The record is a 97-nucleotide sequence from Thioploca ingrica, which matches "Bacterial small signal recognition particle RNA" in Rfam.
The family is grouped with related families in Rfam's "SRP clan".
Rfam classes the family as a non-coding RNA gene.
Pairs were carried over by alignment from the consensus structure, which is taken from published work.
[Rfam]
RNA sequence: UGUCGGUCCCCUCGCAACGUAAAGUUGUGAACCCCGUCAGGUCCGGAAGGAAGCAGCGGUAGCAGCGAAAACGGGUGCCGGGGUGUGGCUGACAUGG
Numbered sequence: 001u002g003u004c005g006g007u008c009c010c011c012u013c014g015c016a017a018c019g020u021a022a023a024g025u026u027g028u029g030a031a032c033c034c035c036g037u038c039a040g041g042u043c044c045g046g047a048a049g050g051a052a053g054c055a056g057c058g059g060u061a062g063c064a065g066c067g068a069a070a071a072c073g074g075g076u077g078c079c080g081g082g083g084u085g086u087g088g089c090u091g092a093c094a095u096g097g
Stems, first nucleotide, its partner, number of pairs: 004091005010083005015075001018073003024066005034059004042051003
About this RNA: The literature on the family includes a 2009 paper in RNA Biol by Rosenblad et al., "Kinship in the SRP RNA family".